[Rfam]
RNA: NiCo (Nickel/Cobalt) riboswitch aptamer
RNA sequence: ACAGUACAAACUGAGCAGGCGAUGAACCUAAUUUAGGUCAUGGGGCCGGGCCACUUUUGUGGCAGCAGAAUGUGAUAAUAUACACAUCUGUGGGACAGUA
Numbered sequence: 001a002c003a004g005u006a007c008a009a010a011c012u013g014a015g016c017a018g019g020c021g022a023u024g025a026a027c028c029u030a031a032u033u034u035a036g037g038u039c040a041u042g043g044g045g046c047c048g049g050g051c052c053a054c055u056u057u058u059g060u061g062g063c064a065g066c067a068g069a070a071u072g073u074g075a076u077a078a079u080a081u082a083c084a085c086a087u088c089u090g091u092g093g094g095a096c097a098g099u100a
Stems, first nucleotide, its partner, number of pairs: 010099004016094001018047003022041004027036001050063005065091005